A member of the RNA family "Small nucleolar RNA snoR109" from Salvia splendens, 85 nucleotides long.
For this family Rfam cites "Experimental RNomics: identification of 140 candidates for small non-messenger RNAs in the plant Arabidopsis thaliana" (Marker et al., Curr Biol, 2002).
Rfam links the family to the GO terms RNA processing and nucleolus.
Rfam 15.1 lists 680 matches to the family in 220 species.
Nucleotides: 085
Stems, first nucleotide, its partner, number of pairs: 022079008034066003038062003042057004
Number, partner (000 for none) and nucleotide at each position: 001000c002000g003000g004000c005000u006000g007000u008000a009000g010000c011000u012000a013000u014000a015000u016000u017000a018000a019000u020000c021000g022079g023078a024077g025076a026075a027074g028073u029072u030000a031000u032000c033000u034066g035065g036064c037000c038062g039061g040060u041000u042057g043056u044055u045054g046000u047000u048000c049000u050000u051000u052000g053000u054045c055044g056043a057042c058000a059000u060040a061039u062038c063000u064036g065035c066034u067000u068000a069000c070000c071000g072029a073028a074027u075026u076025u077024c078023u079022c080000a081000c082000a083000u084000u085000u